[Rfam]
RNA: Rhizobiales sRNA Atu_C8
RNA sequence: UAUGACCAAUAUUAUUCUAAUCGUGGUGGGACGGCGCAUGGGCAAGAUGGUGUAACCAUCUGGCGAAAGCUCCCAUGCGCGGUAAACAACAGGCUCCUAAAGGGAGCCUUUUUUAUUGCCUUUUG
Numbered sequence: 001u002a003u004g005a006c007c008a009a010u011a012u013u014a015u016u017c018u019a020a021u022c023g024u025g026g027u028g029g030g031a032c033g034g035c036g037c038a039u040g041g042g043c044a045a046g047a048u049g050g051u052g053u054a055a056c057c058a059u060c061u062g063g064c065g066a067a068a069g070c071u072c073c074c075a076u077g078c079g080c081g082g083u084a085a086a087c088a089a090c091a092g093g094c095u096c097c098u099a100a101a102g103g104g105a106g107c108c109u110u111u112u113u114u115a116u117u118g119c120c121u122u123u124u125g
Base pairs, nucleotide, nucleotide: 007028029121030120032118034080035079036078037077038076039075040074041073042072045061046060047059048058049057050056063070064069086110091109092108093107094106095105096104097103